RNA sequence: AAACACGUAGUUCGAAACCAUCCUACGUAAAAAAACUAGGGAGUG
Numbered sequence: 001a002a003a004c005a006c007g008u009a010g011u012u013c014g015a016a017a018c019c020a021u022c023c024u025a026c027g028u029a030a031a032a033a034a035a036c037u038a039g040g041g042a043g044u045g
Stems, first nucleotide, its partner, number of pairs: 006027005016037001
This 45-nucleotide RNA from Listeria fleischmannii belongs to the Rfam family "PreQ1 (pre queuosine) riboswitch aptamer". The organism belongs to Listeria fleischmannii, within Bacteria. About the family: This family is a bacterial riboswitch that binds to the metabolite preQ1, an intermediate in the biosynthesis of the modified nucleoside queuosine from GTP. One example of this riboswitch is located in the leader of the Bacillus subtilis ykvJKLM (queCDEF) operon which encodes four genes necessary for queuosine production. PreQ1 binding to the riboswitch aptamer is thought to induce premature transcription termination within the leader to down-regulate expression of these genes.